[Rfam]
RNA sequence: GAUAUAUGAUGAGUUGUCUAGUCUUGCAUUAAAUAUGCGAGUUAUGUGUCUGCCCCAAGCCUGGUUACGACAAUUGGGCACUCUCCUUUGACCAAUCUGAUCUC
Number, nucleotide and partner (000 for none) at each position: 001g104002a103003u000004a101005u000006a000007u000008g000009a000010u000011g000012a000013g000014u094015u000016g092017u091018c090019u000020a000021g000022u000023c041024u040025u039026g038027c037028a000029u000030u000031a000032a000033a000034u000035a000036u000037g027038c026039g025040a024041g023042u000043u000044a000045u000046g081047u080048g079049u078050c077051u000052g000053c000054c000055c000056c000057a000058a000059g000060c000061c000062u076063g075064g074065u073066u000067a000068c000069g000070a000071c000072a000073a065074u064075u063076g062077g050078g049079c048080a047081c046082u000083c000084u000085c000086c000087u000088u000089u000090g018091a017092c016093c000094a014095a000096u000097c000098u000099g000100a000101u004102c000103u002104c001